Rfam assigns this 90-nucleotide RNA sequence from Alteromonadaceae bacterium 2753L.S.0a.02 to the family "t44 RNA". The organism belongs to Alteromonadaceae, within Bacteria. It is annotated as a small RNA. The base pairs follow the family's consensus structure, which was predicted with LocARNA. From the family's description: This family consists of a number of bacterial RNA genes of between 135 and 170 bases in length.
RNA sequence: UAAUGAUGUUUCUAAAGUCGCACAUAUACCGUCACAUCUGCCUGGGUGCCAGUUUUUCUGGUUGGCUGGUGGGGUAUAUGGAGGCCUAAC
Numbered sequence: 001u002a003a004u005g006a007u008g009u010u011u012c013u014a015a016a017g018u019c020g021c022a023c024a025u026a027u028a029c030c031g032u033c034a035c036a037u038c039u040g041c042c043u044g045g046g047u048g049c050c051a052g053u054u055u056u057u058c059u060g061g062u063u064g065g066c067u068g069g070u071g072g073g074g075u076a077u078a079u080g081g082a083g084g085c086c087u088a089a090c
Stems, first nucleotide, its partner, number of pairs: 023080008035071004040066003048062005
Dot-bracket structure: ......................((((((((....((((.(((.....(((((.....))))).))).)))).))))))))..........